[Rfam]
RNA: Mammalian CPEB3 ribozyme
Organism: Alligator sinensis
RNA sequence: AGAGGUCACAAGCAAAAGGCUAGAAGAGAGGCAUUCAAAGCACAGCCCUGUCAGAUUCCAAGGAGUCUGUGAAUUUUGCU
Number, nucleotide and partner (000 for none) at each position: 001a000002g000003a000004g000005g000006u000007c000008a000009c000010a000011a000012g000013c000014a000015a000016a000017a000018g047019g046020c045021u044022a000023g000024a080025a000026g000027a077028g076029a075030g074031g043032c000033a000034u000035u000036c000037a000038a000039a000040g000041c000042a000043c031044a021045g020046c019047c018048c000049u000050g000051u000052c069053a068054g067055a066056u065057u064058c063059c000060a000061a000062g000063g058064a057065g056066u055067c054068u053069g052070u000071g000072a000073a000074u030075u029076u028077u027078g000079c000080u024